[Rfam]
The family of this 264-nucleotide RNA sequence from Medicago truncatula is "MIR2655 microRNA precursor family". It scores 188 bits against the family's covariance model. Rfam 15.1 lists 892 matches to the family in 5 species. The base pairs follow the family's consensus structure, which was predicted with RNAalifold. Gene Ontology terms of the family: miRNA-mediated post-transcriptional gene silencing and RISC complex.
RNA sequence: CUCAUGUAAUAAAAAGUCCGUUUAGGUCCCUUAAGUUUAUUUAAAUAUCAGUUUGGUCCUUUCUGUUAAUUUAAUUUAAAAAAACGUUAAAUUUUGAUCACAUAACUUAUUUAAUUAGUAUUAUUUUAGUCCCUUAGCUUAUUUAAUUAGUAUUAGUUUGGUCCUUAAAAUUAACGUUUUAUUGAAUUAAAUUAACAGAAAGGACCAAACUGAUACUUUAAAUAAAGUUAAGGGACCUAGACAGACUUUUUAUUACUUAUGGGA
Dot-bracket structure: (..(.(..............(((.(((.((((((.((((((.(((...........................................................................................................................................................................))).)))))).)))))).))).)))..............).)..)...